[Rfam]
RNA sequence: AGGUCGGAAGGGUUGCGGUGGGACGCAGUCCAAGAAUUGACCCGGAUUUUCCGCUCUUAGGCCCGCGCCUCACGCCCCCGGUGAGCGCGCU
Numbered sequence: 001a002g003g004u005c006g007g008a009a010g011g012g013u014u015g016c017g018g019u020g021g022g023a024c025g026c027a028g029u030c031c032a033a034g035a036a037u038u039g040a041c042c043c044g045g046a047u048u049u050u051c052c053g054c055u056c057u058u059a060g061g062c063c064c065g066c067g068c069c070u071c072a073c074g075c076c077c078c079c080g081g082u083g084a085g086c087g088c089g090c091u
Stems, first nucleotide, its partner, number of pairs: 002042004010031008065090004069085005
RNA: Rhodo-rpoB RNA